[Rfam]
RNA sequence: UCGAAGGGUGGCUAGGGUUCCGGUCCGCGGUGCGGAUGCUGGUCCGAGAGCCGCCGGCCUCUGCGAGGCGGGCCUGUCCCGCGGAUCGGAUGCUGCACGGAGGGAUAAAAGCCCGGGAGGA
Dot-bracket structure: ......((((((..((...(((((((((...)))))).).)).))....))))))(((.((((.......................)))).))).(.[...(((.......))).)..]..
The family of this 121-nucleotide RNA from Sinimarinibacterium arenosum is "Guanidine-I riboswitch aptamer". The base pairs follow the family's consensus structure. NCBI's taxonomy places the organism under Bacteria, Pseudomonadati, Gammaproteobacteria, Nevskiales, Sinimarinibacterium. It scores 78 bits against the family's covariance model.